[Rfam]
RNA sequence: CCAAUUGCUGGGUCGCCUGUGAUUGG
Numbered sequence: 001c002c003a004a005u006u007g008c009u010g011g012g013u014c015g016c017c018u019g020u021g022a023u024u025g026g
Stems, first nucleotide, its partner, number of pairs: 001026008010017002
The family of this 26-nucleotide RNA sequence from Frischella perrara is "L25-Gammaproteobacteria ribosomal protein leader". The family's consensus secondary structure is taken from published work. For this family Rfam cites "Discovery of 20 novel ribosomal leader candidates in bacteria and archaea" (Eckert and Weinberg, BMC Microbiol, 2020). Taxonomically the source falls in Frischella (Bacteria, Pseudomonadati, Gammaproteobacteria, Orbaceae).